[Rfam]
U7 small nuclear RNA: a 62-nucleotide RNA from Prolemur simus. The family's consensus secondary structure was predicted with PFOLD. A search with the family's covariance model found it, with a score of 61 bits. From the family's description: Animal histone pre-mRNAs are spliced by a different mechanism than nuclear pre-mRNAs and self-splicing introns. This processing involves the U7 snRNP, which contains only one RNA species: U7.
RNA sequence: GAAUGUUACAGUUCUUUUAGAAUUUGUCUAGCAGGUUUUCUGUUCCUCACUGGAAGACCCCC
Numbered sequence: 001g002a003a004u005g006u007u008a009c010a011g012u013u014c015u016u017u018u019a020g021a022a023u024u025u026g027u028c029u030a031g032c033a034g035g036u037u038u039u040c041u042g043u044u045c046c047u048c049a050c051u052g053g054a055a056g057a058c059c060c061c062c
Stems, first nucleotide, its partner, number of pairs: 034059009044049001